[Rfam]
RNA: Small nucleolar RNA snoR109
Organism: Colocasia esculenta
RNA sequence: CGGCUGUAGCCACAUGAACCAGUUCUUAUCAUAGGGAAGAAAACUGGCCGGUGGUUGUCCAUACAUCAAUAUUGCCACCGCUUACCGAUCUUCCUAUAUAU
Numbered sequence: 001c002g003g004c005u006g007u008a009g010c011c012a013c014a015u016g017a018a019c020c021a022g023u024u025c026u027u028a029u030c031a032u033a034g035g036g037a038a039g040a041a042a043a044c045u046g047g048c049c050g051g052u053g054g055u056u057g058u059c060c061a062u063a064c065a066u067c068a069a070u071a072u073u074g075c076c077a078c079c080g081c082u083u084a085c086c087g088a089u090c091u092u093c094c095u096a097u098a099u100a101u
Stems, first nucleotide, its partner, number of pairs: 034095007046082003050079004